A member of the RNA family "Alphaproteobacterial ar14", 124 nucleotides long.
A search with the family's covariance model found it, with a score of 124 bits.
From the family's description: Smr14C2 was renamed NfeR1 (Nodule Formation Efficiency RNA) highly expressed in salt stress and during the symbiotic interaction on legume roots.
[Rfam]
RNA sequence: GGAAUUCGGAGCGACGCACUCCUCCUCCCAGCGUCCCUCCGAUGGGAUUGGCAACUCUCCUCCUCCCAGUUGCCAAUCAUUAUUAUGACGCCCGCUGGACCUCCUCCCCCAGCGGGCGUUAUAU
Numbered sequence: 001g002g003a004a005u006u007c008g009g010a011g012c013g014a015c016g017c018a019c020u021c022c023u024c025c026u027c028c029c030a031g032c033g034u035c036c037c038u039c040c041g042a043u044g045g046g047a048u049u050g051g052c053a054a055c056u057c058u059c060c061u062c063c064u065c066c067c068a069g070u071u072g073c074c075a076a077u078c079a080u081u082a083u084u085a086u087g088a089c090g091c092c093c094g095c096u097g098g099a100c101c102u103c104c105u106c107c108c109c110c111a112g113c114g115g116g117c118g119u120u121a122u123a124u
Stems, first nucleotide, its partner, number of pairs: 007041003011037001013035005046078010088119011
Dot-bracket structure: ......(((.(.(((((.............))))).).)))....((((((((((.............)))))))))).........(((((((((((..........))))))))))).....